The family of this 213-nucleotide sequence from Triplophysa tibetana is "Small nucleolar RNA U3". Rfam describes the family as follows. Small nucleolar RNAs (snoRNAs) are involved in the processing and modification of rRNA in the nucleolus. There are two main classes of snoRNAs: the box C/D class, and the box H/ACA class. U3 snoRNA is a member of the box C/D class. NCBI's taxonomy places the organism under Eukaryota, Metazoa, Gnathostomata, Actinopteri, Triplophysa. It scores 100 bits against the family's covariance model.
RNA sequence: AGGCCAAUACUUUCAGGGAUCAUUUCUACAGUUAUUUACUUGGAAAUGUGUUUCGUUAGUCUUUGUUUCCCAAACCAUGAUGAUGAGCUUAGAUGUUUCUUUUAGAGCAUGAAUCUGGCCCCUAGUUGCGAUUUGAUUCACAUGCUUUGUGCAGUUGAUGAAUGUUUUUUAUUGCUUUGGCGAUGUUGAGGAAAGACGGAUGAUCGUAGUGGU
Numbered sequence: 001a002g003g004c005c006a007a008u009a010c011u012u013u014c015a016g017g018g019a020u021c022a023u024u025u026c027u028a029c030a031g032u033u034a035u036u037u038a039c040u041u042g043g044a045a046a047u048g049u050g051u052u053u054c055g056u057u058a059g060u061c062u063u064u065g066u067u068u069c070c071c072a073a074a075c076c077a078u079g080a081u082g083a084u085g086a087g088c089u090u091a092g093a094u095g096u097u098u099c100u101u102u103u104a105g106a107g108c109a110u111g112a113a114u115c116u117g118g119c120c121c122c123u124a125g126u127u128g129c130g131a132u133u134u135g136a137u138u139c140a141c142a143u144g145c146u147u148u149g150u151g152c153a154g155u156u157g158a159u160g161a162a163u164g165u166u167u168u169u170u171a172u173u174g175c176u177u178u179g180g181c182g183a184u185g186u187u188g189a190g191g192a193a194a195g196a197c198g199g200a201u202g203a204u205c206g207u208a209g210u211g212g213u
Base pairs, nucleotide, nucleotide: 001041002040003039006035009032010031011030015027016026017025018024048063050061052059074213075212076211077210078209093201094200096198098196099195100194101193102192103191107165108164109163118152119151124146125145126144127142128141130139131138170185171184172183173182174181175180